[Rfam]
RNA sequence: AGCCUCAUUCUGGAUGAAAAUGGACACUGCUGUUCAAGGUGUCCAGAAAUGGUUAAUGAGACACGGGUUAUGCUUCCAUCACAGUAAUUUUAUUAUAGUGGUGACAAUGAAAGCUGUAACAUUG
Numbered sequence: 001a002g003c004c005u006c007a008u009u010c011u012g013g014a015u016g017a018a019a020a021u022g023g024a025c026a027c028u029g030c031u032g033u034u035c036a037a038g039g040u041g042u043c044c045a046g047a048a049a050u051g052g053u054u055a056a057u058g059a060g061a062c063a064c065g066g067g068u069u070a071u072g073c074u075u076c077c078a079u080c081a082c083a084g085u086a087a088u089u090u091u092a093u094u095a096u097a098g099u100g101g102u103g104a105c106a107a108u109g110a111a112a113g114c115u116g117u118a119a120c121a122u123u124g
Stems, first nucleotide, its partner, number of pairs: 002062001004060001006058003021045007063117004077103006